Annotation
A member of the RNA family "MIR162_2 microRNA precursor family" from Digitaria exilis, 125 nucleotides long. The family's consensus secondary structure was predicted with RNAalifold. It scores 125 bits against the family's covariance model.
RNA sequence: GUCUGGGCGCAGUGGUUUAUCGAUCCCUUCCUUGCCUUGUGCUGAUCCAGGAGGUUCAAGUGUUUCUUGUUGCAGCAGCUUUGCAGACAACGCGGGAAUCGAUCGAUAAACCUCUGCAUCCAGCU
Number, nucleotide and partner (000 for none) at each position: 001g000002u000003c123004u122005g121006g120007g119008c000009g117010c116011a115012g114013u000014g112015g111016u110017u109018u108019a107020u106021c105022g104023a103024u102025c101026c000027c000028u098029u097030c096031c095032u094033u000034g093035c092036c000037u090038u089039g088040u000041g000042c000043u000044g000045a000046u000047c000048c000049a000050g000051g000052a000053g000054g000055u000056u000057c000058a000059a000060g000061u000062g000063u000064u000065u000066c000067u000068u000069g000070u000071u000072g000073c000074a000075g000076c000077a000078g000079c000080u000081u000082u000083g000084c000085a000086g000087a000088c039089a038090a037091c000092g035093c034094g032095g031096g030097a029098a028099u000100c000101g025102a024103u023104c022105g021106a020107u019108a018109a017110a016111c015112c014113u000114c012115u011116g010117c009118a000119u007120c006121c005122a004123g003124c000125u000